[Rfam]
RNA sequence: AUAAUGAUACUCCUACACAGCCGUAAUCCGUGUAAUGGAAUGUACCGCAGGUAUCGGGUGCAGCUGCAUGAGAACCAUGCGGGGGUGUGAUUCCCGUGG
Numbered sequence: 001a002u003a004a005u006g007a008u009a010c011u012c013c014u015a016c017a018c019a020g021c022c023g024u025a026a027u028c029c030g031u032g033u034a035a036u037g038g039a040a041u042g043u044a045c046c047g048c049a050g051g052u053a054u055c056g057g058g059u060g061c062a063g064c065u066g067c068a069u070g071a072g073a074a075c076c077a078u079g080c081g082g083g084g085g086u087g088u089g090a091u092u093c094c095c096g097u098g099g
Stems, first nucleotide, its partner, number of pairs: 012096001013063002016060003064082003068078003083095003

Rfam assigns this 99-nucleotide RNA sequence from Clostridiales bacterium CHKCI006 to the family "pemK RNA". It scores 55 bits against the family's covariance model.